[Rfam]
Nucleotides: 568
Base pairs, nucleotide, nucleotide: 002499003498005496006495009491010458016456017455018454020453021452022451025052026051030050031049032048037045038044059411060410061409069330070329071328074325075324078323084318085317086316099134101132102131108124109123110122111121112120113119142174143173144172145171148168149167180258181257182256183255184254185253195245196244227236228235229234267311268310269309270308272307273306274305275304332382333381334380339373340372341371348370349369350368351367352366353365354364355363386408387407388406389405390401391400392399393398413434414433416431417430418429436447437446438445439444464489466488467487468486472484473483474482475481476480504532505531506530508527509526510525512524513523514522515521516520539559540558541556543555544554545553
Number, partner (000 for none) and nucleotide at each position: 001000c002499g003498u004000c005496u006495u007000c008000a009491a010458g011000a012000u013000u014000a015000a016456g017455c018454c019000a020453u021452g022451c023000a024000u025052g026051u027000c028000u029000a030050a031049g032048u033000g034000u035000a036000a037045a038044c039000c040000a041000c042000u043000g044038g045037u046000g047000a048032a049031c050030u051026g052025c053000g054000a055000a056000u057000g058000g059411c060410u061409c062000a063000u064000u065000a066000u067000a068000c069330c070329a071328g072000u073000u074325a075324u076000a077000a078323u079000c080000u081000a082000u083000u084318u085317g086316g087000u088000g089000g090000u091000a092000u093000g094000g095000a096000c097000u098000a099134c100000u101132c102131g103000g104000a105000u106000a107000c108124c109123c110122g111121u112120a113119g114000u115000a116000a117000c118000u119113c120112u121111g122110u123109g124108g125000c126000u127000a128000a129000u130000a131102c132101g133000u134099g135000c136000g137000a138000a139000u140000u141000u142174c143173c144172c145171c146000a147000a148168c149167u150000c151000a152000u153000c154000c155000g156000u157000c158000a159000a160000g161000g162000a163000g164000a165000u166000u167149a168148g169000g170000a171145g172144g173143g174142g175000c176000g177000u178000a179000u180258u181257u182256a183255u184254u185253a186000g187000u188000u189000a190000u191000a192000a193000a194000c195245g196244c197000u198000a199000g200000c201000c202000u203000c204000g205000a206000c207000a208000c209000u210000c211000a212000g213000c214000c215000u216000u217000a218000a219000g220000u221000u222000a223000u224000a225000g226000c227236c228235u229234g230000a231000g232000u233000g234229u235228a236227g237000a238000g239000a240000u241000c242000g243000u244196g245195u246000u247000g248000a249000a250000u251000c252000a253185u254184a255183a256182u257181a258180a259000c260000u261000g262000u263000c264000g265000a266000a267311u268310c269309g270308u271000a272307u273306g274305g275304c276000c277000g278000u279000u280000u281000a282000g283000c284000u285000a286000c287000u288000a289000g290000u291000a292000u293000a294000g295000c296000u297000g298000a299000a300000c301000a302000a303000c304275g305274c306273u307272a308270a309269c310268g311267a312000u313000g314000c315000u316086c317085c318084a319000a320000u321000c322000a323078a324075a325074u326000u327000u328071c329070u330069g331000c332382c333381c334380c335000a336000u337000c338000a339373u340372c341371u342000u343000g344000c345000a346000c347000g348370u349369u350368g351367g352366u353365a354364g355363g356000g357000u358000a359000g360000u361000g362000g363355c364354c365353u366352a367351c368350c369349a370348a371341a372340g373339a374000a375000a376000u377000g378000a379000c380334g381333g382332g383000u384000a385000a386408c387407g388406g389405g390401g391400a392399a393398u394000u395000g396000g397000c398393g399392u400391u401390c402000g403000a404000u405389u406388c407387c408386g409061g410060a411059g412000a413434g414433g415000g416431a417430g418429c419000c420000u421000g422000a423000g424000a425000g426000a427000c428000g429418g430417c431416u432000a433414c434413c435000a436447c437446u438445u439444c440000u441000a442000a443000g444439g445438a446437a447436g448000g449000c450000a451022g452021c453020a454018g455017g456016c457000g458010c459000g460000c461000a462000a463000c464489u465000u466488a467487c468486c469000c470000a471000a472484u473483c474482c475481u476480g477000a478000c479000g480476c481475a482474g483473g484472g485000a486468g487467g488466u489464a490000g491009u492000g493000a494000c495006g496005a497000a498003a499002c500000a501000u502000a503000c504532c505531c506530u507000a508527g509526u510525a511000u512524a513523g514522a515521u516520c517000c518000g519000u520516g521515a522514u523513c524512u525510u526509g527508u528000a529000u530506a531505g532504g533000g534000a535000a536000u537000g538000c539559a540558u541556c542000c543555a544554a545553u546000c547000u548000a549000a550000a551000c552000c553545g554544u555543u556541g557000g558540g559539u560000g561000a562000u563000g564000a565000c566000c567000g568000a
The family of this 568-nucleotide part of an RNA from Bigelowiella natans is "Eukaryotic small subunit ribosomal RNA". For this family Rfam cites "Crystal structure of the ribosome at 5.5 A resolution" (Yusupov et al., Science, 2001). Taxonomically the source falls in Bigelowiella (Eukaryota, Rhizaria, Cercozoa, Chlorarachniophyceae).